[Rfam]
RNA sequence: UUCAUAGAAAAUUUCCGAGUGCAUAAAUCUAAGGCCUAAGCUACGAUUUAUCACCUAUGGGUAAAAGAAGAAAUUCCUUUACCUCCCACCCUUGGAAAGGAAAUUUAUUAGCAUAGAA
Numbered sequence: 001u002u003c004a005u006a007g008a009a010a011a012u013u014u015c016c017g018a019g020u021g022c023a024u025a026a027a028u029c030u031a032a033g034g035c036c037u038a039a040g041c042u043a044c045g046a047u048u049u050a051u052c053a054c055c056u057a058u059g060g061g062u063a064a065a066a067g068a069a070g071a072a073a074u075u076c077c078u079u080u081a082c083c084u085c086c087c088a089c090c091c092u093u094g095g096a097a098a099g100g101a102a103a104u105u106u107a108u109u110a111g112c113a114u115a116g117a118a
Stems, first nucleotide, its partner, number of pairs: 006109001011104006019054003023051007033042003059084007067076003085095002
Rfam assigns this 118-nucleotide RNA from Alkaliphilus serpentinus to the family "Molybdenum/Tungsten riboswitch aptamer (Moco RNA motif)". The literature on the family includes a 2008 paper in Mol Microbiol by Regulski et al., "in molybdenum cofactor and tungsten cofactor metabolism". Gene Ontology terms of the family: regulation of gene expression, tungstate binding and molybdenum ion binding.